[Rfam]
RNA sequence: UGCAUUCGCUAGGGGUGCCCCACGCCGAUAUUGGCGCGCGGGCUGAGAGAGUCCCUUUGAACCUGAUUGAGAUCAUCCUCGCGCAGGGAAGCCCGUUCUAACGCCC
Numbered sequence: 001u002g003c004a005u006u007c008g009c010u011a012g013g014g015g016u017g018c019c020c021c022a023c024g025c026c027g028a029u030a031u032u033g034g035c036g037c038g039c040g041g042g043c044u045g046a047g048a049g050a051g052u053c054c055c056u057u058u059g060a061a062c063c064u065g066a067u068u069g070a071g072a073u074c075a076u077c078c079u080c081g082c083g084c085a086g087g088g089a090a091g092c093c094c095g096u097u098c099u100a101a102c103g104c105c106c
Base pairs, nucleotide, nucleotide: 008092009091010090011056012055013054014053016050017043018042019041020040062087063086064085065084068081069080070079071078
The family of this 106-nucleotide RNA from Simplicispira sp. 125 is "TPP riboswitch aptamer (THI element)". From the family's description: Vitamin B(1) in its active form thiamin pyrophosphate (TPP) is an essential coenzyme that is synthesised by coupling of pyrimidine and thiazole moieties in bacteria. It scores 58 bits against the family's covariance model. Gene Ontology term of the family: thiamine pyrophosphate binding.